The record is a 95-nucleotide sequence from Pseudonocardia sp. MH-G8, which matches "ZMP/ZTP riboswitch aptamer (pfl RNA motif)" in Rfam. Its family is annotated with one-carbon metabolic process and regulation of purine nucleotide biosynthetic process in the Gene Ontology. Lineage of the source: Bacteria > Actinomycetota > Pseudonocardiales > Pseudonocardiaceae > Pseudonocardia. On this family, see Jones and Ferre-D'Amare, Nat Struct Mol Biol 2015: "Recognition of the bacterial alarmone ZMP through long-distance association of two RNA subdomains".
[Rfam]
RNA sequence: CGCCCGGGCCGUGACUGGCGCGCUGGGAUGGAUCAAACCAUCGGGGAGCGGCCCGGUCGCCGUGACCUGUAGUGCCGUGCGCCUGGGCCAUCCAC
Numbered sequence: 001c002g003c004c005c006g007g008g009c010c011g012u013g014a015c016u017g018g019c020g021c022g023c024u025g026g027g028a029u030g031g032a033u034c035a036a037a038c039c040a041u042c043g044g045g046g047a048g049c050g051g052c053c054c055g056g057u058c059g060c061c062g063u064g065a066c067c068u069g070u071a072g073u074g075c076c077g078u079g080c081g082c083c084u085g086g087g088c089c090a091u092c093c094a095c
Stems, first nucleotide, its partner, number of pairs: 004056009015045002017083005028041004074088003